[Rfam]
RNA sequence: AGCUGGAGGGGAGGCAAGAUGUUGGCAUAGCUGUUAACCUAAAAACCUGCUAUGCCAACAUAUUGUCAUCUUUCCUGUCU
Dot-bracket structure: ....(((((((.(((((.(((.(((((((((.................))))))))).))).))))).))))))).....
This 80-nucleotide RNA from Gallus gallus belongs to the Rfam family "mir-31 microRNA precursor family". Taxonomically the source falls in Gallus (Eukaryota, Dipnotetrapodomorpha, Tetrapoda, Theropoda). Pairs were carried over by alignment from the consensus structure, which was predicted with RNAalifold. On this family, see Aravin et al., Dev Cell 2003: "The small RNA profile during Drosophila melanogaster development". Rfam links the family to the GO terms RISC complex and gene silencing by miRNA.